The record is an 87-nucleotide sequence from Oculatella sp. LEGE 06141, which matches "Fluoride riboswitch aptamer (crcB RNA motif)" in Rfam.
Lineage of the source: Bacteria > Bacillati > Cyanobacteriota > Cyanophyceae > Oculatella.
The family's consensus secondary structure is taken from published work.
A search with the family's covariance model found it, with a score of 48 bits.

RNA sequence: UGAAAAUUGGGUGAUGGAGCUCACCCUAACCGCCGCAAACCGUUAGCGUUAUGGCUACAGGUUAAGGCUGAUGGCUCCUACUGUUCU
Numbered sequence: 001u002g003a004a005a006a007u008u009g010g011g012u013g014a015u016g017g018a019g020c021u022c023a024c025c026c027u028a029a030c031c032g033c034c035g036c037a038a039a040c041c042g043u044u045a046g047c048g049u050u051a052u053g054g055c056u057a058c059a060g061g062u063u064a065a066g067g068c069u070g071a072u073g074g075c076u077c078c079u080a081c082u083g084u085u086c087u
Base pairs, nucleotide, nucleotide: 010025011024012023013022016078017077018076019075020074021073032068033067034066